[Rfam]
RNA sequence: GCCUGGAUGGCUAAAUGGCAGAGCGAGCGGCUGUUAACCGCUAGGUCCAUGGUUCGAUCCCAUGUCUAGGCA
Numbered sequence: 001g002c003c004u005g006g007a008u009g010g011c012u013a014a015a016u017g018g019c020a021g022a023g024c025g026a027g028c029g030g031c032u033g034u035u036a037a038c039c040g041c042u043a044g045g046u047c048c049a050u051g052g053u054u055c056g057a058u059c060c061c062a063u064g065u066c067u068a069g070g071c072a
Stems, first nucleotide, its partner, number of pairs: 001071007010024003026042005048064005